[Rfam]
RNA sequence: UCCAUGGUGACGUGGAAUCUGAAGGAAGCGAGCGGCAAACCUCCGGUCUGAGGAACACGAACUUCAUAUGAGGCUAAGGUAUCGUUGGAUGAGUUUGCUAAACAAAACGAAGUCCUUUCUGUCGAAGGCGAUAUCAAGUAAAUGGAGCAGAUAGGUGGAGGGAAAGAUUGCAUU
Numbered sequence: 001u002c003c004a005u006g007g008u009g010a011c012g013u014g015g016a017a018u019c020u021g022a023a024g025g026a027a028g029c030g031a032g033c034g035g036c037a038a039a040c041c042u043c044c045g046g047u048c049u050g051a052g053g054a055a056c057a058c059g060a061a062c063u064u065c066a067u068a069u070g071a072g073g074c075u076a077a078g079g080u081a082u083c084g085u086u087g088g089a090u091g092a093g094u095u096u097g098c099u100a101a102a103c104a105a106a107a108c109g110a111a112g113u114c115c116u117u118u119c120u121g122u123c124g125a126a127g128g129c130g131a132u133a134u135c136a137a138g139u140a141a142a143u144g145g146a147g148c149a150g151a152u153a154g155g156u157g158g159a160g161g162g163a164a165a166g167a168u169u170g171c172a173u174u
Base pairs, nucleotide, nucleotide: 001016002015003014004013005012006011028174036166040161041160042159043158044157045156046152047151048150049149050148062147063146064145065144066143067142073139074138075137078135079134080133081132082131083130084129087115088114089113090112093108094107095106096105

The record is a 174-nucleotide sequence from Bacillus coahuilensis, which matches "Group II catalytic intron D1-D4-3" in Rfam. About the family: Group II introns are found in rRNA, tRNA and mRNA of organelles in fungi, plants and protists, and also in mRNA in bacteria. Pairs were carried over by alignment from the consensus structure. Lineage of the source: Bacteria > Bacillati > Bacillota > Bacillus > Bacillus coahuilensis.